The record is a 118-nucleotide sequence, which matches "Group II catalytic intron D1-D4-2" in Rfam. Rfam's curators put it in the seed alignment.
[Rfam]
RNA sequence: GAAGGAGGGCCCUUCGAGAUCGGCAAUCAGGUGUUGAUCUCAAGCCACCGCAAGCUGCUGUCGUUAAAAGCGAUGGUGGUGAGCGUUGCGGAAACGGCGGGACCAGAUCCCGUCAGGC
Numbered sequence: 001g002a003a004g005g006a007g008g009g010c011c012c013u014u015c016g017a018g019a020u021c022g023g024c025a026a027u028c029a030g031g032u033g034u035u036g037a038u039c040u041c042a043a044g045c046c047a048c049c050g051c052a053a054g055c056u057g058c059u060g061u062c063g064u065u066a067a068a069a070g071c072g073a074u075g076g077u078g079g080u081g082a083g084c085g086u087u088g089c090g091g092a093a094a095c096g097g098c099g100g101g102a103c104c105a106g107a108u109c110c111c112g113u114c115a116g117g118c
Base pairs, nucleotide, nucleotide: 001015002014003013004012005011016041017040018039019038020037021036023034024033025032046117048091049090050089051088052087053086054080055079057077058076059075061073062072063071064070096114097113098112099111100110101109